[Rfam]
RNA sequence: AGUGAUAUAGAUUUCUAAAGUCCAAGCCGCGUACAUGCUUGCAUGUAAAGCGGUUUGUGACCUUAGAAAUCGAACAGGCAUGAGGAAGUAGCACGAUAGUGCGGAUUCCGAAUGUCUGUAGAAUUGCGAGAGCGACGAAAGUCGCGUAGCAAUUCGUAUAUCACU
Numbered sequence: 001a002g003u004g005a006u007a008u009a010g011a012u013u014u015c016u017a018a019a020g021u022c023c024a025a026g027c028c029g030c031g032u033a034c035a036u037g038c039u040u041g042c043a044u045g046u047a048a049a050g051c052g053g054u055u056u057g058u059g060a061c062c063u064u065a066g067a068a069a070u071c072g073a074a075c076a077g078g079c080a081u082g083a084g085g086a087a088g089u090a091g092c093a094c095g096a097u098a099g100u101g102c103g104g105a106u107u108c109c110g111a112a113u114g115u116c117u118g119u120a121g122a123a124u125u126g127c128g129a130g131a132g133c134g135a136c137g138a139a140a141g142u143c144g145c146g147u148a149g150c151a152a153u154u155c156g157u158a159u160a161u162c163a164c165u
Stems, first nucleotide, its partner, number of pairs: 001165007011070004017064002020061003023057008032048001033046005074119008084109004091102004121155007132145004